[Rfam]
RNA: Eukaryotic large subunit ribosomal RNA, nucleotides 2070 to 2597
RNA sequence: UAGAAUAAUGUAGGUAAGGGAAGUCGGCAAAUUAGAUCCGUAACUUCGGGAAAAGGAUUGGCUCCAGUGACCGGGUCGGUUGGCCUGUUAAUUGAUGCUUGUGCGGUUUUACCCGUGGCCGGCAGAUGUGUGUUGAAAUAUACGUGCUGACGCUGGACUAGUGAUAAGACCACCUUGUGGACGUUUACAGGUGUGUGCUUUGUCUUCGGACUUAGUAUCCUGAUCGACCAUCGAAACGGUCGAACUGGAACUGGUACGGACUCGGGGAAUCCGACUGUCUAAUUAAAACAGAGGAGACAGAUGGUCCUUGCGGACGUUUACUGUCUCUGAUUUCUGCCCAGUGCUCUGAAUGUUAAAUCGUAGUAAUUCGAGUAAGCGCGGGUAAACGGCGGGAGUAACUAUGACUCUCUUAAGGUAGCCAAAUGCCUCGUCAGCUAACUACUGACGCGCAUGAAUGGAUUAACGAGAUUCCCACUGUCCCUAACUACUAUCUAGCGAAACCACAGCCAAGGGAACGGGCUUGGCAAA
Numbered sequence: 001u002a003g004a005a006u007a008a009u010g011u012a013g014g015u016a017a018g019g020g021a022a023g024u025c026g027g028c029a030a031a032u033u034a035g036a037u038c039c040g041u042a043a044c045u046u047c048g049g050g051a052a053a054a055g056g057a058u059u060g061g062c063u064c065c066a067g068u069g070a071c072c073g074g075g076u077c078g079g080u081u082g083g084c085c086u087g088u089u090a091a092u093u094g095a096u097g098c099u100u101g102u103g104c105g106g107u108u109u110u111a112c113c114c115g116u117g118g119c120c121g122g123c124a125g126a127u128g129u130g131u132g133u134u135g136a137a138a139u140a141u142a143c144g145u146g147c148u149g150a151c152g153c154u155g156g157a158c159u160a161g162u163g164a165u166a167a168g169a170c171c172a173c174c175u176u177g178u179g180g181a182c183g184u185u186u187a188c189a190g191g192u193g194u195g196u197g198c199u200u201u202g203u204c205u206u207c208g209g210a211c212u213u214a215g216u217a218u219c220c221u222g223a224u225c226g227a228c229c230a231u232c233g234a235a236a237c238g239g240u241c242g243a244a245c246u247g248g249a250a251c252u253g254g255u256a257c258g259g260a261c262u263c264g265g266g267g268a269a270u271c272c273g274a275c276u277g278u279c280u281a282a283u284u285a286a287a288a289c290a291g292a293g294g295a296g297a298c299a300g301a302u303g304g305u306c307c308u309u310g311c312g313g314a315c316g317u318u319u320a321c322u323g324u325c326u327c328u329g330a331u332u333u334c335u336g337c338c339c340a341g342u343g344c345u346c347u348g349a350a351u352g353u354u355a356a357a358u359c360g361u362a363g364u365a366a367u368u369c370g371a372g373u374a375a376g377c378g379c380g381g382g383u384a385a386a387c388g389g390c391g392g393g394a395g396u397a398a399c400u401a402u403g404a405c406u407c408u409c410u411u412a413a414g415g416u417a418g419c420c421a422a423a424u425g426c427c428u429c430g431u432c433a434g435c436u437a438a439c440u441a442c443u444g445a446c447g448c449g450c451a452u453g454a455a456u457g458g459a460u461u462a463a464c465g466a467g468a469u470u471c472c473c474a475c476u477g478u479c480c481c482u483a484a485c486u487a488c489u490a491u492c493u494a495g496c497g498a499a500a501c502c503a504c505a506g507c508c509a510a511g512g513g514a515a516c517g518g519g520c521u522u523g524g525c526a527a528a
Base pairs, nucleotide, nucleotide: 001494002493003492004491010488011487012486013485015483016482018480019479020478035059036058037057038056039055044049060252061251063249064248065247066246067245068244069241070240071239072238073237075228076227077226078225079224080223081222082221083220084191085190086189088187090185091184097178098177101173102172103171105170107168108167109166112163114161117158119156120155121154122153123152128147129146130145131144132143133142253257265473266472267471268470269469270468271467272465273464276290277289278288293328294327295326296325297324298323299322300321304315305314306313307312332459333458334457336390337389338388341387342386343383344382345381346380348379351378352377353376358371359370360369362367391409392408393407394406395405396404410414430446431445432444433443434442507524508523509522510521511520
Dot-bracket structure: ((((.....((((.((.(((..............(((((....(....).....)))))((.(((((((((((.((((((((((((.(.((.....((..(((.(.(((..(.(..(.(((((....((((((........))))))....))))).)..).)..))).))))...)).....)).).)))............................)))))))))........)))))..)))))).))(...).......(((((((((..(((.........)))..((((((((...((((....)))).....))))))))...(((.(((..((((((.(..(((....(((.(....).)))....))))))))..)))))((((((.......))))))(...)...............(((((.......)))))..........)))....)).)))))))....))).)).))))..))))............(((((........)))))....